The family of this 100-nucleotide RNA from Pueribacillus theae is "pan motif". The base pairs follow the family's consensus structure, which is taken from published work. NCBI's taxonomy places the organism under Bacteria, Bacillati, Bacillota, Caryophanales, Pueribacillus. A search with the family's covariance model found it, with a score of 42 bits.

RNA sequence: GGGAUGGCAUCCCUAGUGGAGCUCAUACCUAAAUCCAUUUUAUUUUCUUUUUGCUUCACCAAUAUCUAUGCUCUGAUUCCGAAAUGAACAGAGACUAAGG
Dot-bracket structure: ((((((((.((.......)))).))).))).......................................((((((.(((......)))))))).).....